[Rfam]
Notes:
Rfam assigns this 243-nucleotide RNA from Oncorhynchus mykiss to the family "Small nucleolar RNA SNORA53". Rfam describes the family as follows. The snoRNA ACA53 belongs to the H/ACA family of pseudouridylation guide snoRNAs. Gene Ontology terms of the family: RNA processing and nucleolus.
RNA sequence: AACACGCUCCUUAGAUCCACCUCUGGGGGGCGCUCCUGGUCUGUUGAGUCUGCUAUUAUCUCUCUCUCUCUGAGUGUUGACUGCAGCUCCAGCCCAGACGCUCCCAGCAGCUUUCUGGCUGUACAGUUGGAGGUGCUUGAGUCAUUGGCGUGUGAGAACAGUCUACCUGCUCCUCAGCCCACUCCCUGCACUGGCACCCUCGCUGGAAAAUGACCAGUGCAGACAGGCUGGGGAGCGGACAUG
Numbered sequence: 001a002a003c004a005c006g007c008u009c010c011u012u013a014g015a016u017c018c019a020c021c022u023c024u025g026g027g028g029g030g031c032g033c034u035c036c037u038g039g040u041c042u043g044u045u046g047a048g049u050c051u052g053c054u055a056u057u058a059u060c061u062c063u064c065u066c067u068c069u070c071u072g073a074g075u076g077u078u079g080a081c082u083g084c085a086g087c088u089c090c091a092g093c094c095c096a097g098a099c100g101c102u103c104c105c106a107g108c109a110g111c112u113u114u115c116u117g118g119c120u121g122u123a124c125a126g127u128u129g130g131a132g133g134u135g136c137u138u139g140a141g142u143c144a145u146u147g148g149c150g151u152g153u154g155a156g157a158a159c160a161g162u163c164u165a166c167c168u169g170c171u172c173c174u175c176a177g178c179c180c181a182c183u184c185c186c187u188g189c190a191c192u193g194g195c196a197c198c199c200u201c202g203c204u205g206g207a208a209a210a211u212g213a214c215c216a217g218u219g220c221a222g223a224c225a226g227g228c229u230g231g232g233g234a235g236c237g238g239a240c241a242u243g
Stems, first nucleotide, its partner, number of pairs: 002153007010141005018135008027105004037097001039095001043093004048089001050086004056080003107122006167238005174231001176229004186222008